[Rfam]
Shown here is a 125-nucleotide RNA sequence from Nitrospirillum viridazoti, a member of the family "SAM-I/IV (S-adenosyl methionine) riboswitch aptamer". The source organism's lineage runs through Bacteria, Rhodospirillales, Azospirillaceae, Nitrospirillum and Nitrospirillum viridazoti.
RNA sequence: CUGUUGCAUCAGGAGCGGGGCCGGCGUCCCGCACCAACCUGCCAGCCCAGGCAAGGUGGUUUCCGCGUUCGCGCGGAGAUGUGGCGGCCCCCGGUUCCCGGGCGGCGGCAACCAAGUGGGUCGCA
Numbered sequence: 001c002u003g004u005u006g007c008a009u010c011a012g013g014a015g016c017g018g019g020g021c022c023g024g025c026g027u028c029c030c031g032c033a034c035c036a037a038c039c040u041g042c043c044a045g046c047c048c049a050g051g052c053a054a055g056g057u058g059g060u061u062u063c064c065g066c067g068u069u070c071g072c073g074c075g076g077a078g079a080u081g082u083g084g085c086g087g088c089c090c091c092c093g094g095u096u097c098c099c100g101g102g103c104g105g106c107g108g109c110a111a112c113c114a115a116g117u118g119g120g121u122c123g124c125a
Stems, first nucleotide, its partner, number of pairs: 006082005015032006033060003038056003041052003045121005084109002087106003
Clan: SAM clan. A search with the family's covariance model found it, with a score of 48 bits.